[Rfam]
RNA sequence: AACGUACGAAAAGCGCCUGAACUAUUUUCUGGACGGGAACGAAGAUAGUUGACGAGGUGGAGGUUAAUCGAAUGAAUCGGCGGAUACCUCCCGAUUGCACAUCCCAAUCGAUAUGCUUUAUUUUCUAAAACAGCAAGGUGACUUGUUGGACAAUGGAAUAAAGCAGGAUGUAU
Numbered sequence: 001a002a003c004g005u006a007c008g009a010a011a012a013g014c015g016c017c018u019g020a021a022c023u024a025u026u027u028u029c030u031g032g033a034c035g036g037g038a039a040c041g042a043a044g045a046u047a048g049u050u051g052a053c054g055a056g057g058u059g060g061a062g063g064u065u066a067a068u069c070g071a072a073u074g075a076a077u078c079g080g081c082g083g084a085u086a087c088c089u090c091c092c093g094a095u096u097g098c099a100c101a102u103c104c105c106a107a108u109c110g111a112u113a114u115g116c117u118u119u120a121u122u123u124u125c126u127a128a129a130a131c132a133g134c135a136a137g138g139u140g141a142c143u144u145g146u147u148g149g150a151c152a153a154u155g156g157a158a159u160a161a162a163g164c165a166g167g168a169u170g171u172a173u
Stems, first nucleotide, its partner, number of pairs: 020050008029041001059091005068080004092110006116163007131148007

This 173-nucleotide sequence from Virgibacillus salinus belongs to the Rfam family "glmS glucosamine-6-phosphate activated ribozyme aptamer". On this family, see Winkler et al., Nature 2004: "Control of gene expression by a natural metabolite-responsive ribozyme". Rfam links the family to the GO terms regulation of gene expression and catalytic activity. The source organism's lineage runs through Bacteria, Bacillati, Bacillota, Caryophanales and Virgibacillus. By type it is a riboswitch. Pairs were carried over by alignment from the consensus structure, which is taken from published work. Rfam's curators write: This entry contains a glucosamine-6-phosphate activated ribozyme that is found in the mRNA for GlmS. GlmS is an enzyme that uses fructose-6-phosphate and glutamine to generate glucosamine-6-phosphate.